RNA sequence: CGAACCGUGUCGGGAGAGUUCGCGCGUCGUCCGCUUCGGUGGAGAGCGCCGGACGCCGAAGGAGCAAGUCCUCCCCGGAAUCUCUCAGGCCCCCGUACCGACACGGCGAG
Number, nucleotide and partner (000 for none) at each position: 001c000002g000003a000004a000005c000006c105007g104008u103009g102010u101011c100012g099013g098014g000015a000016g000017a000018g000019u053020u052021c051022g050023c000024g000025c000026g000027u000028c000029g000030u000031c000032c000033g000034c000035u000036u000037c000038g000039g000040u000041g000042g000043a000044g000045a000046g000047c000048g000049c000050c022051g021052g020053a019054c000055g090056c089057c088058g086059a085060a000061g000062g084063a083064g082065c000066a000067a000068g000069u000070c000071c000072u000073c000074c000075c000076c000077g000078g000079a000080a000081u000082c064083u063084c062085u059086c058087a000088g057089g056090c055091c000092c000093c000094c000095g000096u000097a000098c013099c012100g011101a010102c009103a008104c007105g006106g000107c000108g000109a000110g000

Rfam assigns this 110-nucleotide RNA from Luteimicrobium xylanilyticum to the family "Glycine riboswitch aptamer". NCBI's taxonomy places the organism under Bacteria, Bacillati, Actinomycetota, Micrococcales, Luteimicrobium.